[Rfam]
RNA: let-7 microRNA precursor family
Organism: Microcaecilia unicolor
RNA sequence: GCAGAGUGAGGUAGUAGGUUGUGUGGUUUCAGGGUAGUGAUUUUGUCCCAGUCAGGUGAUAACUAUGCAACCUACUGCCUUCCCUGA
Number, nucleotide and partner (000 for none) at each position: 001g000002c086003a085004g084005a000006g082007u000008g081009a080010g079011g078012u077013a076014g075015u074016a073017g072018g071019u070020u069021g068022u067023g066024u065025g064026g063027u062028u000029u000030c000031a000032g049033g048034g047035u000036a000037g000038u000039g000040a000041u000042u000043u000044u000045g000046u000047c034048c033049c032050a000051g000052u000053c000054a000055g000056g000057u000058g000059a000060u000061a000062a027063c026064u025065a024066u023067g022068c021069a020070a019071c018072c017073u016074a015075c014076u013077g012078c011079c010080u009081u008082c006083c000084c004085u003086g002087a000